[Rfam]
RNA sequence: UGGAACUAAGGAAUAACUUUUUUCGCAUAUAGUUUUCUGCGAAUAGUUGAAAGGAAUCACACUUACCCAAGAUCGAGCAAUGUCGAGGUAAGUUGGAGAUUAUAAGUAAAUAAAAGGACAAA
Numbered sequence: 001u002g003g004a005a006c007u008a009a010g011g012a013a014u015a016a017c018u019u020u021u022u023u024c025g026c027a028u029a030u031a032g033u034u035u036u037c038u039g040c041g042a043a044u045a046g047u048u049g050a051a052a053g054g055a056a057u058c059a060c061a062c063u064u065a066c067c068c069a070a071g072a073u074c075g076a077g078c079a080a081u082g083u084c085g086a087g088g089u090a091a092g093u094u095g096g097a098g099a100u101u102a103u104a105a106g107u108a109a110a111u112a113a114a115a116g117g118a119c120a121a122a
Stems, first nucleotide, its partner, number of pairs: 022043006061093007